[Rfam]
RNA: mir-574 microRNA precursor family
RNA sequence: AGGCCCGGAGAGAGAAGCAGGGCCUGAUCCACAGCUUCCAUGGCAGCUGCGGAUCAGCCCUUGCCUCUCUCUCUCUCCG
Numbered sequence: 001a002g003g004c005c006c007g008g009a010g011a012g013a014g015a016a017g018c019a020g021g022g023c024c025u026g027a028u029c030c031a032c033a034g035c036u037u038c039c040a041u042g043g044c045a046g047c048u049g050c051g052g053a054u055c056a057g058c059c060c061u062u063g064c065c066u067c068u069c070u071c072u073c074u075c076u077c078c079g
Stems, first nucleotide, its partner, number of pairs: 008073008017064004022059001024057006032049004